[Rfam]
RNA sequence: UUGGCAAAUAGAGGUGCAUGCGUUAAGAAUUCGUUAUUAAUGGAUACAGCCAGAUAAUGAAGGGGGAGCAAAUGCCGAAGAGACAGGGAACUGUAUAUGAACUGUUAUCUGGGGGAUAAGAGAAGAUCUUAUUCACUGUCACAAAAUAUUUGUGGUGCGCUAUUGAAUAU
Numbered sequence: 001u002u003g004g005c006a007a008a009u010a011g012a013g014g015u016g017c018a019u020g021c022g023u024u025a026a027g028a029a030u031u032c033g034u035u036a037u038u039a040a041u042g043g044a045u046a047c048a049g050c051c052a053g054a055u056a057a058u059g060a061a062g063g064g065g066g067a068g069c070a071a072a073u074g075c076c077g078a079a080g081a082g083a084c085a086g087g088g089a090a091c092u093g094u095a096u097a098u099g100a101a102c103u104g105u106u107a108u109c110u111g112g113g114g115g116a117u118a119a120g121a122g123a124a125g126a127u128c129u130u131a132u133u134c135a136c137u138g139u140c141a142c143a144a145a146a147u148a149u150u151u152g153u154g155g156u157g158c159g160c161u162a163u164u165g166a167a168u169a170u
Base pairs, nucleotide, nucleotide: 007164008163009162010161011160016075017074018073019072022069023068024067031060032059033058034057035056036055037054079110080109081108082106083105084104085103086102111137112136114134115133116132117131118130119129120128121127139155140154141153142152143151144150145149